RNA: Small nucleolar RNA SNORD59
RNA sequence: CCUCCUGUGAUGUGUCUUGAUGACUUUCGUUCUCCUGAGCUUGCUGAAGCCAUGGAUUUCAAUCUGAGGAGG
Dot-bracket structure: (((.(..............................................................).)))